[Rfam]
Nucleotides: 077
Base pairs, nucleotide, nucleotide: 002076003075004074007071008070014064015063017061018060019059020058021057022056026055027054028053029052030051031050033049034048035047
Number, partner (000 for none) and nucleotide at each position: 001000u002076a003075c004074c005000a006000g007071c008070g009000g010000u011000g012000a013000a014064c015063a016000u017061u018060c019059a020058a021057c022056g023000c024000u025000g026055u027054c028053g029052g030051u031050g032000a033049g034048u035047u036000u037000g038000a039000c040000c041000c042000g043000a044000g045000c046000c047035a048034a049033c050031c051030a052029u053028c054027g055026a056022c057021g058020u059019u060018g061017a062000c063015u064014g065000u066000a067000c068000c069000c070008c071007g072000a073000g074004g075003g076002u077000c